[Rfam]
RNA sequence: GCAACCUGCGCCUCGCGCGCGAGAGCGUCGCGGUGUUCCGCUCCAUCCUCGGCAUCUCGUGGAUGUGGUUCUUCGGGGCGGUGUUUUUGUCCCAGUUCCCGUCGUUCGCCAAGGAGGUGCUG
Numbered sequence: 001g002c003a004a005c006c007u008g009c010g011c012c013u014c015g016c017g018c019g020c021g022a023g024a025g026c027g028u029c030g031c032g033g034u035g036u037u038c039c040g041c042u043c044c045a046u047c048c049u050c051g052g053c054a055u056c057u058c059g060u061g062g063a064u065g066u067g068g069u070u071c072u073u074c075g076g077g078g079c080g081g082u083g084u085u086u087u088u089g090u091c092c093c094a095g096u097u098c099c100c101g102u103c104g105u106u107c108g109c110c111a112a113g114g115a116g117g118u119g120c121u122g
Stems, first nucleotide, its partner, number of pairs: 010049001015044001017042001021038003025034002051121005057115002060112001062110001063105003067099002071095002075091002078088001080087002
Rfam assigns this 122-nucleotide RNA sequence from Caldimonas brevitalea to the family "Burkholderia RNA 11". NCBI's taxonomy places the organism under Bacteria, Pseudomonadati, Pseudomonadota, Betaproteobacteria, Caldimonas.